A member of the RNA family "mir-1426 microRNA precursor family" from Podargus strigoides, 88 nucleotides long.
Taxonomically the source falls in Podargus (Eukaryota, Opisthokonta, Sauria, Caprimulgiformes).
[Rfam]
RNA sequence: CAGGGUUGAUCCUCCUUCCUUAACUCAUGCCGCUGUGCCUUUAAAUUUAUUUCACAAUGGUGUGAGUUGAGUACUGAGUAUCAGUCUC
Numbered sequence: 001c002a003g004g005g006u007u008g009a010u011c012c013u014c015c016u017u018c019c020u021u022a023a024c025u026c027a028u029g030c031c032g033c034u035g036u037g038c039c040u041u042u043a044a045a046u047u048u049a050u051u052u053c054a055c056a057a058u059g060g061u062g063u064g065a066g067u068u069g070a071g072u073a074c075u076g077a078g079u080a081u082c083a084g085u086c087u088c
Stems, first nucleotide, its partner, number of pairs: 004086007012078002019071010034056004